[Rfam]
RNA sequence: CAAGACACAGGAAAUGAAUGUCUUCCUUGGGCCUAGCCCUAAACCGCUAUUGAUGAUUCAAAAGCUGAUGACUUCUGCUGUAAA
Numbered sequence: 001c002a003a004g005a006c007a008c009a010g011g012a013a014a015u016g017a018a019u020g021u022c023u024u025c026c027u028u029g030g031g032c033c034u035a036g037c038c039c040u041a042a043a044c045c046g047c048u049a050u051u052g053a054u055g056a057u058u059c060a061a062a063a064g065c066u067g068a069u070g071a072c073u074u075c076u077g078c079u080g081u082a083a084a
Base pairs, nucleotide, nucleotide: 010026011025012024013023016075017074018073020072021071022070046065047064048063
This 84-nucleotide RNA sequence from Aerococcus sanguinicola belongs to the Rfam family "Fluoride riboswitch aptamer (crcB RNA motif)". The base pairs follow the family's consensus structure, which is taken from published work.